[Rfam]
RNA sequence: CUCCUGUUACGUAUACUAAAGGUAUACCGGAAGAAUAUAACACUCAGGAUACAUUUAGUAUACGUCCAGGGG
Numbered sequence: 001c002u003c004c005u006g007u008u009a010c011g012u013a014u015a016c017u018a019a020a021g022g023u024a025u026a027c028c029g030g031a032a033g034a035a036u037a038u039a040a041c042a043c044u045c046a047g048g049a050u051a052c053a054u055u056u057a058g059u060a061u062a063c064g065u066c067c068a069g070g071g072g
Stems, first nucleotide, its partner, number of pairs: 002071005009065012022052004027048002030045002033041001
mir-iab-4 microRNA precursor family: a 72-nucleotide RNA sequence from Bemisia tabaci. Its family is annotated with RISC complex and miRNA-mediated post-transcriptional gene silencing in the Gene Ontology. For this family Rfam cites "Evolutionary flux of canonical microRNAs and mirtrons in Drosophila" (Berezikov et al., Nat Genet, 2010).